[Rfam]
RNA: Ribosomal protein L10 leader
Nucleotides: 144
Base pairs, nucleotide, nucleotide: 028058030056031055032054033053034044035043036042105129106128107127108126109125110124111123112122113121114120
Number, partner (000 for none) and nucleotide at each position: 001000a002000a003000c004000a005000a006000u007000c008000a009000a010000a011000u012000a013000u014000c015000c016000u017000u018000a019000c020000c021000g022000u023000a024000g025000a026000c027000a028058g029000u030056u031055g032054g033053u034044g035043c036042g037000u038000u039000u040000a041000u042036c043035g044034c045000u046000u047000a048000a049000a050000u051000u052000u053033g054032c055031c056030a057000c058028c059000c060000g061000a062000g063000g064000g065000a066000u067000u068000u069000c070000u071000u072000u073000u074000g075000a076000a077000g078000u079000g080000u081000g082000c083000g084000u085000c086000c087000g088000c089000g090000u091000g092000c093000a094000u095000u096000u097000u098000a099000c100000a101000a102000a103000a104000a105129c106128c107127u108126c109125u110124g111123a112122c113121g114120u115000c116000u117000a118000c119000g120114g121113u122112g123111u124110c125109a126108g127107a128106g129105g130000u131000u132000u133000u134000u135000g136000u137000u138000g139000c140000u141000g142000a143000u144000c